[Rfam]
RNA sequence: AAGCCAGCUAGUGAAUCUGCUUACCUGCAAAUGUUUCUGCAGAAAUUUUAGAAAAAGCUGGCAAUAAUAAUGCCAUCUUACGAGCCUUAAAGACACUGAAGUCCUUAAGGUCCCUGAAAAUGGCUACAAUA
Numbered sequence: 001a002a003g004c005c006a007g008c009u010a011g012u013g014a015a016u017c018u019g020c021u022u023a024c025c026u027g028c029a030a031a032u033g034u035u036u037c038u039g040c041a042g043a044a045a046u047u048u049u050a051g052a053a054a055a056a057g058c059u060g061g062c063a064a065u066a067a068u069a070a071u072g073c074c075a076u077c078u079u080a081c082g083a084g085c086c087u088u089a090a091a092g093a094c095a096c097u098g099a100a101g102u103c104c105u106u107a108a109g110g111u112c113c114c115u116g117a118a119a120a121u122g123g124c125u126a127c128a129a130u131a
Stems, first nucleotide, its partner, number of pairs: 003062005016043005072124004084111007092103003

Small nucleolar RNA SNORA33: a 131-nucleotide RNA from Ictidomys tridecemlineatus.
The family's RNA type in Rfam is H/ACA-box small nucleolar RNA.
ACA33 is a member of the H/ACA class of snoRNA that guide the sites of modification of uridines to pseudouridines.
It is one of the family's seed sequences.
Taxonomically the source falls in Ictidomys (Eukaryota, Eumetazoa, Dipnotetrapodomorpha, Boreoeutheria).